[Rfam]
RNA sequence: UGGAUGAACCAUUGUUAAGGAACUCUGCAAACUAGCACCGUAUCUUCGGUAUAAGGUGUGCCCUAUUUGUUAUGAGAUUUACUCUCAAAAGCAUUGAUGGGUGGCAGCAAAGUGUCCCUCCCGACUGUUUACCAAAAACACAGCACUCUGCUAACUCGUAAGAGGAUGUAUAGGGUGUGACGCCUGCCCGGUGCUCGAAGGUUAAAAGGAUCCGUUAGCUUUGCGAAGCGGUGAAUUGAAGCCCGAGUAAACGGCGGCCGUAACUAUAACGGUCCUAAGGUAGCGAAAUUCCUUGUCGGUUAAAUACCGACCUGCAUGAAUGGCGUAACGAGAUGGGAGCUGUCUCAACAAUGGAUCCA
Numbered sequence: 001u002g003g004a005u006g007a008a009c010c011a012u013u014g015u016u017a018a019g020g021a022a023c024u025c026u027g028c029a030a031a032c033u034a035g036c037a038c039c040g041u042a043u044c045u046u047c048g049g050u051a052u053a054a055g056g057u058g059u060g061c062c063c064u065a066u067u068u069g070u071u072a073u074g075a076g077a078u079u080u081a082c083u084c085u086c087a088a089a090a091g092c093a094u095u096g097a098u099g100g101g102u103g104g105c106a107g108c109a110a111a112g113u114g115u116c117c118c119u120c121c122c123g124a125c126u127g128u129u130u131a132c133c134a135a136a137a138a139c140a141c142a143g144c145a146c147u148c149u150g151c152u153a154a155c156u157c158g159u160a161a162g163a164g165g166a167u168g169u170a171u172a173g174g175g176u177g178u179g180a181c182g183c184c185u186g187c188c189c190g191g192u193g194c195u196c197g198a199a200g201g202u203u204a205a206a207a208g209g210a211u212c213c214g215u216u217a218g219c220u221u222u223g224c225g226a227a228g229c230g231g232u233g234a235a236u237u238g239a240a241g242c243c244c245g246a247g248u249a250a251a252c253g254g255c256g257g258c259c260g261u262a263a264c265u266a267u268a269a270c271g272g273u274c275c276u277a278a279g280g281u282a283g284c285g286a287a288a289u290u291c292c293u294u295g296u297c298g299g300u301u302a303a304a305u306a307c308c309g310a311c312c313u314g315c316a317u318g319a320a321u322g323g324c325g326u327a328a329c330g331a332g333a334u335g336g337g338a339g340c341u342g343u344c345u346c347a348a349c350a351a352u353g354g355a356u357c358c359a
Stems, first nucleotide, its partner, number of pairs: 001359004009354008018345003035059005044049001060102004073087005115338004121332001122330002126140003143178008151168001155164003181325004186255003191252002193248005200243003206237002212231004218224002256274006275279001285312001295311006
Dot-bracket structure: ((((....((((((((.(((..............(((((....(....).....)))))((((.........(((((.....)))))...........))))............((((..(((..(((.........)))..(((((((((...(((....)))...)..))))))))..((((.(((..(((((((..(((...((....((((..((...))...))))....))...))))))))..)))))((((((.......))))))(...).....(.........((((((.....))))))).........))))...)).)..))))....))).)))))))).))))
The record is a 359-nucleotide part of an RNA from Sulfurimonas aquatica, which matches "Bacterial large subunit ribosomal RNA" in Rfam.
A search with the family's covariance model found it, with a score of 2822 bits.
The source organism's lineage runs through Bacteria, Campylobacterota, Campylobacterales, Sulfurimonadaceae and Sulfurimonas.
Clan: LSU clan.